RNA sequence: CAUGUCGGGCAUUGCGUAGGCGUUGUGCACAGUGUUCUUUAAAUUACAAUUGUGCAUCUCAUCCACGUAAAUCACGGCACU
Dot-bracket structure: ..(((((.(...(((((.((.(..(((((((((...............)))))))))..).)).)))))...).)))))..
RNA: mir-242_2 microRNA precursor family
Organism: Strongylocentrotus purpuratus